[Rfam]
RNA sequence: UCAGUUGGUUAGAGCAGAGGACUCAUCAAAAAUGGUGACCAUGGGGCGAGAGCCCCAUUGGAAAACCGGGUGAAUUCAAGGAACCCUACAGCGCAAGCCAUGGCAACCUUGAGCCAAGCCCGCCGAAAGGCAGGUCGCAAGACCGGUAGGCGGGAAGGUGCAGAGACUAGGACGUGAGGAGCCCAUCCGAUAAGCGUCCCGUGAGCGCCCGGCGCCCCAACAGUUCGGCUGUGGGCGGUGAGAUAGUCCAAGGAGUGGGGAAACCCACGC
Numbered sequence: 001u002c003a004g005u006u007g008g009u010u011a012g013a014g015c016a017g018a019g020g021a022c023u024c025a026u027c028a029a030a031a032a033u034g035g036u037g038a039c040c041a042u043g044g045g046g047c048g049a050g051a052g053c054c055c056c057a058u059u060g061g062a063a064a065a066c067c068g069g070g071u072g073a074a075u076u077c078a079a080g081g082a083a084c085c086c087u088a089c090a091g092c093g094c095a096a097g098c099c100a101u102g103g104c105a106a107c108c109u110u111g112a113g114c115c116a117a118g119c120c121c122g123c124c125g126a127a128a129g130g131c132a133g134g135u136c137g138c139a140a141g142a143c144c145g146g147u148a149g150g151c152g153g154g155a156a157g158g159u160g161c162a163g164a165g166a167c168u169a170g171g172a173c174g175u176g177a178g179g180a181g182c183c184c185a186u187c188c189g190a191u192a193a194g195c196g197u198c199c200c201g202u203g204a205g206c207g208c209c210c211g212g213c214g215c216c217c218c219a220a221c222a223g224u225u226c227g228g229c230u231g232u233g234g235g236c237g238g239u240g241a242g243a244u245a246g247u248c249c250a251a252g253g254a255g256u257g258g259g260g261a262a263a264c265c266c267a268c269g270c
Stems, first nucleotide, its partner, number of pairs: 005029005011023002033041002066212004071207002076112006085103002113159002119153002126147001129144002163249001165248005215235003218231002221228001255268005
RNA: Group I catalytic intron